[Rfam]
RNA sequence: UUCAAUGUUGUCAAUGAUGCAUUCUUUUCAGAACUGAAUUUAAGUGAUCUAACAAAUUCGUCACUACCACUGAGACAACAUUGAG
Numbered sequence: 001u002u003c004a005a006u007g008u009u010g011u012c013a014a015u016g017a018u019g020c021a022u023u024c025u026u027u028u029c030a031g032a033a034c035u036g037a038a039u040u041u042a043a044g045u046g047a048u049c050u051a052a053c054a055a056a057u058u059c060g061u062c063a064c065u066a067c068c069a070c071u072g073a074g075a076c077a078a079c080a081u082u083g084a085g
Base pairs, nucleotide, nucleotide: 001085002084003083004082005081006080007079008078009077010076011075012074
The family of this 85-nucleotide RNA from Myotis myotis is "Small nucleolar RNA SNORD70".
By type it is a C/D-box small nucleolar RNA.
For this family Rfam cites "RNomics: an experimental approach that identifies 201 candidates for novel, small, non-messenger RNAs in mouse" (Huttenhofer et al., EMBO J, 2001).
Rfam's curators write: snoRNA HBII-234 belongs to the C/D family of snoRNAs. It is the human orthologue of the mouse MBII-234 and is predicted to guide 2'O-ribose methylation of the small 18S rRNA on position A512. It is hosted, together with HBII-95, by the core C/D box snoRNA protein encoding gene NOP5/NOP58.
The source organism's lineage runs through Eukaryota, Craniata, Euteleostomi, Chiroptera and Myotis.